RNA sequence: AGGCCCUUUUAAAGACAGUCCAGAGAGACUGAAAAGGGGCAAUCGUUCUCUUGAAGACUAGUUUGCGCUUGUAAACUAGUAAUCAAGGAAACUUUCUGCCUCUUUACAACAAUGUAAAGAGUUUUUUUUAU
Numbered sequence: 001a002g003g004c005c006c007u008u009u010u011a012a013a014g015a016c017a018g019u020c021c022a023g024a025g026a027g028a029c030u031g032a033a034a035a036g037g038g039g040c041a042a043u044c045g046u047u048c049u050c051u052u053g054a055a056g057a058c059u060a061g062u063u064u065g066c067g068c069u070u071g072u073a074a075a076c077u078a079g080u081a082a083u084c085a086a087g088g089a090a091a092c093u094u095u096c097u098g099c100c101u102c103u104u105u106a107c108a109a110c111a112a113u114g115u116a117a118a119g120a121g122u123u124u125u126u127u128u129u130a131u
Stems, first nucleotide, its partner, number of pairs: 004038006016031005053084002057080010098123001100121009